[Rfam]
RNA sequence: UAUACCUAUGAAGAAGCAAUCCCAAAAAUAAAAUAAAAGUAGAGGACAGAUCAAUUUCCAUUGACGAAUAUCCAAUUCCGAGGGAUG
Numbered sequence: 001u002a003u004a005c006c007u008a009u010g011a012a013g014a015a016g017c018a019a020u021c022c023c024a025a026a027a028a029u030a031a032a033a034u035a036a037a038a039g040u041a042g043a044g045g046a047c048a049g050a051u052c053a054a055u056u057u058c059c060a061u062u063g064a065c066g067a068a069u070a071u072c073c074a075a076u077u078c079c080g081a082g083g084g085a086u087g
Base pairs, nucleotide, nucleotide: 001087002086003085005083006082
Dot-bracket structure: (((.((...........................................................................)).)))
The record is an 87-nucleotide RNA from Durio zibethinus, which matches "Small nucleolar RNA R21" in Rfam. Rfam 15.1 lists 472 matches to the family in 146 species. It scores 50 bits against the family's covariance model. Rfam classes the family as a C/D-box small nucleolar RNA. Its family is annotated with nucleolus and RNA processing in the Gene Ontology. Pairs were carried over by alignment from the consensus structure, which was predicted with PFOLD.